[Rfam]
RNA sequence: GUGUGAGAGGUUCAUAGCCAAACCCUCUAUAAAAAACUAUGGAUAA
Numbered sequence: 001g002u003g004u005g006a007g008a009g010g011u012u013c014a015u016a017g018c019c020a021a022a023c024c025c026u027c028u029a030u031a032a033a034a035a036a037c038u039a040u041g042g043a044u045a046a
Stems, first nucleotide, its partner, number of pairs: 006028005015039002
Rfam assigns this 46-nucleotide RNA sequence from Falsibacillus albus to the family "PreQ1 (pre queuosine) riboswitch aptamer". Rfam links the family to the GO term queuosine biosynthetic process. The base pairs follow the family's consensus structure. It scores 45 bits against the family's covariance model. The literature on the family includes a 2009 paper in J Biol Chem by Spitale et al., "The structural basis for recognition of the PreQ0 metabolite by an unusually small riboswitch aptamer domain".